[Rfam]
RNA sequence: CUGCGGGGAUGAUCAUCCUGAACUCUCUCUUGCCGAUGGGUCAGUGGAGAAGCACUUGAAAUGCUCUGAGUGGC
Number, nucleotide and partner (000 for none) at each position: 001c073002u072003g071004c070005g000006g000007g000008g000009a000010u000011g000012a000013u000014c000015a000016u000017c000018c000019u000020g000021a000022a000023c000024u000025c000026u000027c000028u000029c000030u000031u000032g000033c000034c000035g000036a000037u000038g000039g000040g000041u000042c000043a000044g000045u000046g000047g000048a000049g000050a000051a000052g000053c000054a000055c000056u000057u000058g000059a000060a000061a000062u000063g000064c000065u000066c000067u000068g000069a000070g004071u003072g002073g001074c000
Rfam assigns this 74-nucleotide RNA sequence from Grantiella picta to the family "Small nucleolar RNA SNORD26". Lineage of the source: Eukaryota > Sauropsida > Archelosauria > Passeriformes > Grantiella. Clan: SNORD26 clan. The match comes from Rfam's covariance-model search (64 bits).